A member of the RNA family "Small Cajal body specific RNA 11" from Propithecus coquereli, 140 nucleotides long. By type it is a small Cajal body RNA. The literature on the family includes a 2002 paper in EMBO J by Darzacq et al., "Cajal body-specific small nuclear RNAs: a novel class of 2'-O-methylation and pseudouridylation guide RNAs". NCBI's taxonomy places the organism under Eukaryota, Chordata, Amniota, Eutheria, Propithecus. The match comes from Rfam's covariance-model search (113 bits). The family has 24 seed sequences and 853 matches in Rfam 15.1. Rfam describes the family as follows. scaRNAs are a specific class of small nuclear RNAs which localise to the Cajal bodies and guide the modification of RNA polymerase II transcribed spliceosomal RNAs U1, U2, U4, U5 and U12. ACA57 belongs to the H/ACA box class of guide RNAs as it has the predicted hairpin-hinge-hairpin-tail structure, conserved H/ACA-box motifs and is found associated with GAR1. ACA57 is predicted to guide the pseudouridylation of the U5 spliceosomal RNA at position U43.

[Rfam]
RNA sequence: UCGUCCUGGCCUAUGCUUUUUAUGCUCUGCUGUGCUCAUUUCUAACAGGGUGGGUUGGCAGCACACACAGCAAUUUCCUUCUCAGUUUAGGAGGGCUAUCCUAAGAAUAGGGCUGGCUUUUAAAGGCACGAGUGAACAAU
Numbered sequence: 001u002c003g004u005c006c007u008g009g010c011c012u013a014u015g016c017u018u019u020u021u022a023u024g025c026u027c028u029g030c031u032g033u034g035c036u037c038a039u040u041u042c043u044a045a046c047a048g049g050g051u052g053g054g055u056u057g058g059c060a061g062c063a064c065a066c067a068c069a070g071c072a073a074u075u076u077c078c079u080u081c082u083c084a085g086u087u088u089a090g091g092a093g094g095g096c097u098a099u100c101c102u103a104a105g106a107a108u109a110g111g112g113c114u115g116g117c118u119u120u121u122a123a124a125g126g127c128a129c130g131a132g133u134g135a136a137c138a139a140u
Stems, first nucleotide, its partner, number of pairs: 003064002006061003010058002025053002028050001030048004079134001081132003085127004091121007099112005
Dot-bracket structure: ..((.(((.((.............((.(.((((...........)))).).))...))))).))..............(.(((.((((..(((((((.(((((....)))))..)))))))..))))..))).)......